[Rfam]
RNA sequence: AAAAAGGGCAUCUACUAUAAGUGGUAUACCUGCGGAAAAGUUUUUUAGACGCAGUUACGGAAUCAAUAUCAAGAGAUUUCGGAUGCAUAAUUUUUACACCCGGGACAGCUAAUGACUUUAGAUCUUGGCGCCCCA
Numbered sequence: 001a002a003a004a005a006g007g008g009c010a011u012c013u014a015c016u017a018u019a020a021g022u023g024g025u026a027u028a029c030c031u032g033c034g035g036a037a038a039a040g041u042u043u044u045u046u047a048g049a050c051g052c053a054g055u056u057a058c059g060g061a062a063u064c065a066a067u068a069u070c071a072a073g074a075g076a077u078u079u080c081g082g083a084u085g086c087a088u089a090a091u092u093u094u095u096a097c098a099c100c101c102g103g104g105a106c107a108g109c110u111a112a113u114g115a116c117u118u119u120a121g122a123u124c125u126u127g128g129c130g131c132c133c134c135a
Stems, first nucleotide, its partner, number of pairs: 008086005013026005027057002030054005036046003058081007103133002106130001108129005114124002117121001